[Rfam]
RNA: Small nucleolar RNA SNORA4
RNA sequence: UUACCAAAAGGUAUUUUUGGGCAAGGUUUUGUUUAGUAACCUUUACCAAUUUGGGCUAUUUGGGAGAGUAAAGAAAAGACCACACUCCACAGUGGGCUAUACCACUUAGUAUAGUUUGCUACUAUUUUGUGGCCUACAUU
Numbered sequence: 001u002u003a004c005c006a007a008a009a010g011g012u013a014u015u016u017u018u019g020g021g022c023a024a025g026g027u028u029u030u031g032u033u034u035a036g037u038a039a040c041c042u043u044u045a046c047c048a049a050u051u052u053g054g055g056c057u058a059u060u061u062g063g064g065a066g067a068g069u070a071a072a073g074a075a076a077a078g079a080c081c082a083c084a085c086u087c088c089a090c091a092g093u094g095g096g097c098u099a100u101a102c103c104a105c106u107u108a109g110u111a112u113a114g115u116u117u118g119c120u121a122c123u124a125u126u127u128u129g130u131g132g133c134c135u136a137c138a139u140u
Stems, first nucleotide, its partner, number of pairs: 004063005012058002015055003019051002021047001024044001025041004077135002080132005091120012